[Rfam]
Shown here is a 124-nucleotide sequence from Delphinapterus leucas, a member of the family "Small nucleolar RNA SNORA70". By type it is an H/ACA-box small nucleolar RNA. Gene Ontology terms of the family: RNA processing and nucleolus. On this family, see Charette and Gray, IUBMB Life 2000: "Pseudouridine in RNA: what, where, how, and why".
RNA sequence: UUGCAGCCAGUUAAGCCGACUGUACCCUUUUCCCCAUGGGGGCCCGGUGCGCAGUGGCUGCACCUCGGUAGUGUGUGCGGCCUGUUGCCUGUGUGGGCUGCCCUAAGGGACCCUGGAGACAGCC
Numbered sequence: 001u002u003g004c005a006g007c008c009a010g011u012u013a014a015g016c017c018g019a020c021u022g023u024a025c026c027c028u029u030u031u032c033c034c035c036a037u038g039g040g041g042g043c044c045c046g047g048u049g050c051g052c053a054g055u056g057g058c059u060g061c062a063c064c065u066c067g068g069u070a071g072u073g074u075g076u077g078c079g080g081c082c083u084g085u086u087g088c089c090u091g092u093g094u095g096g097g098c099u100g101c102c103c104u105a106a107g108g109g110a111c112c113c114u115g116g117a118g119a120c121a122g123c124c
Stems, first nucleotide, its partner, number of pairs: 002053003019048004025042004067112003078100006
Dot-bracket structure: .(((..............((((..((((..........))))..))))..))).............(((........((((((...........)))))).........)))............
A search with the family's covariance model found it, with a score of 112 bits. Pairs were carried over by alignment from the consensus structure, which was predicted with PFOLD. Rfam describes the family as follows. snoRNA U70 seems to be exclusive to mammals and is a member of the H/ACA class of snoRNA which contain H (ANANNA) and ACA box motifs. The organism belongs to Delphinapterus, within Eukaryota. The family has 43 seed sequences and 5,173 matches in Rfam 15.1.